[Rfam]
RNA sequence: CCCUGACAGGUGCAUAAAGCGCCUGACACUAGCCUCGACAGGAGUAUCACAUG
Numbered sequence: 001c002c003c004u005g006a007c008a009g010g011u012g013c014a015u016a017a018a019g020c021g022c023c024u025g026a027c028a029c030u031a032g033c034c035u036c037g038a039c040a041g042g043a044g045u046a047u048c049a050c051a052u053g
Base pairs, nucleotide, nucleotide: 002042003041004040005039007025008024009023010022011021
RNA: Mu-gpT-DE RNA